[Rfam]
RNA: FMN riboswitch aptamer (RFN element)
RNA sequence: AUAAAUCUUCAGGGCAGGGUGAAAUUCCCUACCGGUGGUUAUAGUCCACGAGCUGCUUGUGCAGUUGACUUGGUGAAAUUCCAAGACCGACAGUAAAGUCUGGAUGGGAGAAGAUUCUA
Numbered sequence: 001a002u003a004a005a006u007c008u009u010c011a012g013g014g015c016a017g018g019g020u021g022a023a024a025u026u027c028c029c030u031a032c033c034g035g036u037g038g039u040u041a042u043a044g045u046c047c048a049c050g051a052g053c054u055g056c057u058u059g060u061g062c063a064g065u066u067g068a069c070u071u072g073g074u075g076a077a078a079u080u081c082c083a084a085g086a087c088c089g090a091c092a093g094u095a096a097a098g099u100c101u102g103g104a105u106g107g108g109a110g111a112a113g114a115u116u117c118u119a
Stems, first nucleotide, its partner, number of pairs: 004116007017029003031099002033089002035049004044087002052065003069085005091102003